[Rfam]
RNA: Small Cajal body specific RNA 4
Organism: Xiphorhynchus elegans
RNA sequence: ACUGGAGGACUAGUGAGACUGAGUCUGGAGAGUGAGACUCUGGUGCCAGUGGCCUCCUAAAAGUAAAGGGAUGGAGAGAGGGGUCCUGCUUCCAGCAAAGCCAAGGGCUCACUGUGCCAUCUGACACUG
Numbered sequence: 001a002c003u004g005g006a007g008g009a010c011u012a013g014u015g016a017g018a019c020u021g022a023g024u025c026u027g028g029a030g031a032g033u034g035a036g037a038c039u040c041u042g043g044u045g046c047c048a049g050u051g052g053c054c055u056c057c058u059a060a061a062a063g064u065a066a067a068g069g070g071a072u073g074g075a076g077a078g079a080g081g082g083g084u085c086c087u088g089c090u091u092c093c094a095g096c097a098a099a100g101c102c103a104a105g106g107g108c109u110c111a112c113u114g115u116g117c118c119a120u121c122u123g124a125c126a127c128u129g
Stems, first nucleotide, its partner, number of pairs: 003059001004057005017044001019042001021040006068122003079113002081110007093100001